[Rfam]
RNA: ctgf/hcs24 CAESAR
Nucleotides: 074
Stems, first nucleotide, its partner, number of pairs: 004069004010022004027064001
Number, partner (000 for none) and nucleotide at each position: 001000a002000u003000g004069g005068g006067g007066a008000c009000a010022u011021g012020g013019c014000a015000u016000a017000a018000a019013g020012c021011c022010g023000g024000g025000a026000g027064g028000a029000g030000a031000c032000c033000c034000u035000u036000a037000a038000c039000a040000a041000g042000a043000u044000u045000c046000u047000g048000a049000a050000c051000u052000u053000g054000a055000a056000c057000u058000g059000a060000u061000g062000u063000g064027c065000a066007u067006c068005u069004c070000g071000u072000u073000u074000u